[Rfam]
Shown here is a 77-nucleotide RNA sequence from Microcebus murinus, a member of the family "mir-1297 microRNA precursor family". The family has 4 seed sequences and 99 matches in Rfam 15.1. Gene Ontology terms of the family: RISC complex and miRNA-mediated post-transcriptional gene silencing. It scores 85 bits against the family's covariance model. The family's consensus secondary structure was predicted with RNAalifold. The source organism's lineage runs through Eukaryota, Deuterostomia, Craniata, Vertebrata and Microcebus.

RNA sequence: AGAGUAUCUUUAGGGUUGAUCUAUUAGAAUUACUUAUCUGAGCCAAAGUAACUCAAGUAAUUCAGGUGGAGCGAAAC
Numbered sequence: 001a002g003a004g005u006a007u008c009u010u011u012a013g014g015g016u017u018g019a020u021c022u023a024u025u026a027g028a029a030u031u032a033c034u035u036a037u038c039u040g041a042g043c044c045a046a047a048g049u050a051a052c053u054c055a056a057g058u059a060a061u062u063c064a065g066g067u068g069g070a071g072c073g074a075a076a077c
Stems, first nucleotide, its partner, number of pairs: 007074002010071002014067001016065004022059004027054002030051006